RNA sequence: UGUGCAUACCAACCCAAAGGCCAUAUCAGAUGAAUGGUAUGCUCUUGUCAGGUGUGCAAAAAUCAACAUGAUGUACCUUGUCGCCUUUCACUGAUGCUGAUGUGCCGUUGAAAGUGAAUCCAAGGUUUAACAUUU
Numbered sequence: 001u002g003u004g005c006a007u008a009c010c011a012a013c014c015c016a017a018a019g020g021c022c023a024u025a026u027c028a029g030a031u032g033a034a035u036g037g038u039a040u041g042c043u044c045u046u047g048u049c050a051g052g053u054g055u056g057c058a059a060a061a062a063u064c065a066a067c068a069u070g071a072u073g074u075a076c077c078u079u080g081u082c083g084c085c086u087u088u089c090a091c092u093g094a095u096g097c098u099g100a101u102g103u104g105c106c107g108u109u110g111a112a113a114g115u116g117a118a119u120c121c122a123a124g125g126u127u128u129a130a131c132a133u134u135u
Stems, first nucleotide, its partner, number of pairs: 003058007019044002022041007073128001075126005085114005090108002093105001
Rfam assigns this 135-nucleotide RNA sequence from Esox lucius to the family "Small nucleolar RNA SNORA68". Rfam's curators write: U68 is a member of the H/ACA class of small nucleolar RNAs (snoRNAs) which act as guides in the the modification of uridines to pseudouridines. Lineage of the source: Eukaryota > Chordata > Neopterygii > Esociformes > Esox. The base pairs follow the family's consensus structure, which was predicted with PFOLD.